[Rfam]
RNA sequence: CGAUAGCUGAACUCCCAGGUCACCUCGUCGCUGGUGAGCGGUGCAUCGCCCAGGUGGUCGCCGCCGGCCAGGGCGGCCAGCACGGUGGUGUCGCCGUACUUGCCGGUGCCGAUACGGUCCACCCGCCCGUGCGCGAUCAGCACCAGCCGGUCCCCGGGCCCGCCCGCCUCGGCGAUCAGCUCCCCGGGGGCGUAUUCCCGCUGGGUGAACCGUUCCCCCAGCGCGGCCAGCACCUCGGUAUCGGUGAAGUCCCGCAGUGCGGGCAGUUCGCGCAGUUCCUCGGGAAUGAUCGCGACAUCGGAGCCGGAAAUAUCGAAAUCGAUCCGCCCGUCGCCGACGGUGUGCGACAGCCGGCGGUUGACCCGAUACGUACCACCGGAGACCUGAACCCAGGGCAGCAGCCGCAGCAGCCAGCGGGAGGUGAUCCCCUGCAUCUGCGGAACGGUUUUGGUGGUGGUCGCCAAAUUCCGCGCUGCGGCGGUACUCAGGCUCGAAUGCGAGGUGUCUUCCG
Numbered sequence: 001c002g003a004u005a006g007c008u009g010a011a012c013u014c015c016c017a018g019g020u021c022a023c024c025u026c027g028u029c030g031c032u033g034g035u036g037a038g039c040g041g042u043g044c045a046u047c048g049c050c051c052a053g054g055u056g057g058u059c060g061c062c063g064c065c066g067g068c069c070a071g072g073g074c075g076g077c078c079a080g081c082a083c084g085g086u087g088g089u090g091u092c093g094c095c096g097u098a099c100u101u102g103c104c105g106g107u108g109c110c111g112a113u114a115c116g117g118u119c120c121a122c123c124c125g126c127c128c129g130u131g132c133g134c135g136a137u138c139a140g141c142a143c144c145a146g147c148c149g150g151u152c153c154c155c156g157g158g159c160c161c162g163c164c165c166g167c168c169u170c171g172g173c174g175a176u177c178a179g180c181u182c183c184c185c186g187g188g189g190g191c192g193u194a195u196u197c198c199c200g201c202u203g204g205g206u207g208a209a210c211c212g213u214u215c216c217c218c219c220a221g222c223g224c225g226g227c228c229a230g231c232a233c234c235u236c237g238g239u240a241u242c243g244g245u246g247a248a249g250u251c252c253c254g255c256a257g258u259g260c261g262g263g264c265a266g267u268u269c270g271c272g273c274a275g276u277u278c279c280u281c282g283g284g285a286a287u288g289a290u291c292g293c294g295a296c297a298u299c300g301g302a303g304c305c306g307g308a309a310a311u312a313u314c315g316a317a318a319u320c321g322a323u324c325c326g327c328c329c330g331u332c333g334c335c336g337a338c339g340g341u342g343u344g345c346g347a348c349a350g351c352c353g354g355c356g357g358u359u360g361a362c363c364c365g366a367u368a369c370g371u372a373c374c375a376c377c378g379g380a381g382a383c384c385u386g387a388a389c390c391c392a393g394g395g396c397a398g399c400a401g402c403c404g405c406a407g408c409a410g411c412c413a414g415c416g417g418g419a420g421g422u423g424a425u426c427c428c429c430u431g432c433a434u435c436u437g438c439g440g441a442a443c444g445g446u447u448u449u450g451g452u453g454g455u456g457g458u459c460g461c462c463a464a465a466u467u468c469c470g471c472g473c474u475g476c477g478g479c480g481g482u483a484c485u486c487a488g489g490c491u492c493g494a495a496u497g498c499g500a501g502g503u504g505u506c507u508u509c510c511g
Stems, first nucleotide, its partner, number of pairs: 006390001008388001011385001015381001018328002025322003032315001038313001040311001042309001044306001048304001049301002052298001054233002058229001060227005065111004075103001077102001079100002082097005117222002127212001129210002131206002134203002140197001148192002152189007162177001165174003235295003240290004245285001252283003256280002259271003329342004351379004356374002361371002391431005397425001399423002403418001405416001407415001437476004443470003447465006477510002480503001482501001484499001486497002
Notes:
A member of the RNA family "Saccharopolyspora sRNA 350" from Streptomyces chattanoogensis, 511 nucleotides long. The family's RNA type in Rfam is antisense RNA. Gene Ontology term of the family: regulation of secondary metabolite biosynthetic process. The base pairs follow the family's consensus structure, which was predicted with RNAfold. Taxonomically the source falls in Streptomyces (Bacteria, Actinomycetota, Kitasatosporales, Streptomycetaceae). On this family, see Liu et al., PLoS One 2013: "Prediction and characterization of small non-coding RNAs related to secondary metabolites in Saccharopolyspora erythraea".